[Rfam]
RNA sequence: CGCCCCGUCAUUGGGGAGUAGCCGACCUUCUACCUGAAGGAGCCUGCGUCAACAUACUUGGCCAACCAGCCAUGGCGCAGGCAGUUCCCGAACCUGGCAAGACCUUUGACCACCCUCGCCCCCGGACUGGCCGGACGGGCGUGGUGGUCAUCCGUCUCCGUCCGGCCAGGGAAUC
Numbered sequence: 001c002g003c004c005c006c007g008u009c010a011u012u013g014g015g016g017a018g019u020a021g022c023c024g025a026c027c028u029u030c031u032a033c034c035u036g037a038a039g040g041a042g043c044c045u046g047c048g049u050c051a052a053c054a055u056a057c058u059u060g061g062c063c064a065a066c067c068a069g070c071c072a073u074g075g076c077g078c079a080g081g082c083a084g085u086u087c088c089c090g091a092a093c094c095u096g097g098c099a100a101g102a103c104c105u106u107u108g109a110c111c112a113c114c115c116u117c118g119c120c121c122c123c124g125g126a127c128u129g130g131c132c133g134g135a136c137g138g139g140c141g142u143g144g145u146g147g148u149c150a151u152c153c154g155u156c157u158c159c160g161u162c163c164g165g166c167c168a169g170g171g172a173a174u175c
Base pairs, nucleotide, nucleotide: 026040027039028038042082043081044080045079046078047077048076049075050074051073059072060071061070062069083174085172086171087170088169
The record is a 175-nucleotide sequence from Zoogloea dura, which matches "Manganese Mn2+ riboswitch aptamer (yybP-ykoY)" in Rfam. The match comes from Rfam's covariance-model search (100 bits). Rfam links the family to the GO term manganese ion binding.